The record is a 66-nucleotide RNA sequence from Lentibacillus cibarius, which matches "Bacillaceae-1 RNA" in Rfam.
RNA sequence: CCUGUGCGUCGGCAGGCUAAGUUCGUCACGUCCUGUGACAAUGCCUGCACUAGCACGUCCUGUGCG
Dot-bracket structure: ...........((((((.......(((((.....)))))...))))))....((((.....)))).
Numbered sequence: 001c002c003u004g005u006g007c008g009u010c011g012g013c014a015g016g017c018u019a020a021g022u023u024c025g026u027c028a029c030g031u032c033c034u035g036u037g038a039c040a041a042u043g044c045c046u047g048c049a050c051u052a053g054c055a056c057g058u059c060c061u062g063u064g065c066g
Stems, first nucleotide, its partner, number of pairs: 012048006025039005053065004
By type it is a small RNA. The base pairs follow the family's consensus structure, which is taken from published work.